[Rfam]
RNA sequence: GGGUGCCUAUCGGCUGUAACAGCAACUCCAUGUGGAAGCGUCACAUCAUUCCAGUGGGGAGGCUGUUAUUUUGGAUGGGCAC
Numbered sequence: 001g002g003g004u005g006c007c008u009a010u011c012g013g014c015u016g017u018a019a020c021a022g023c024a025a026c027u028c029c030a031u032g033u034g035g036a037a038g039c040g041u042c043a044c045a046u047c048a049u050u051c052c053a054g055u056g057g058g059g060a061g062g063c064u065g066u067u068a069u070u071u072u073g074g075a076u077g078g079g080c081a082c
Stems, first nucleotide, its partner, number of pairs: 010075002016069008026059006033053003

A member of the RNA family "mir-194 microRNA precursor family" from Pogona vitticeps, 82 nucleotides long.
Rfam 15.1 lists 936 matches to the family in 630 species.
Taxonomically the source falls in Pogona (Eukaryota, Vertebrata, Euteleostomi, Episquamata).
Its family is annotated with RISC complex and miRNA-mediated post-transcriptional gene silencing in the Gene Ontology.